[Rfam]
RNA sequence: GCAUGCAUGGCUCCAAGCAUGCCAUCCACAAAGACUACCAUCUACAGAUAAACUCAGCGAAUGGCAUACAAGGAGCCAGGCAUAC
Numbered sequence: 001g002c003a004u005g006c007a008u009g010g011c012u013c014c015a016a017g018c019a020u021g022c023c024a025u026c027c028a029c030a031a032a033g034a035c036u037a038c039c040a041u042c043u044a045c046a047g048a049u050a051a052a053c054u055c056a057g058c059g060a061a062u063g064g065c066a067u068a069c070a071a072g073g074a075g076c077c078a079g080g081c082a083u084a085c
Base pairs, nucleotide, nucleotide: 001085003083004082005081006080008078009077010076011075012074013073014072017069019067020066021065022064023063024062027059029057

The record is an 85-nucleotide sequence from Handroanthus impetiginosus, which matches "mir-160 microRNA precursor family" in Rfam. Pairs were carried over by alignment from the consensus structure, which was predicted with PFOLD.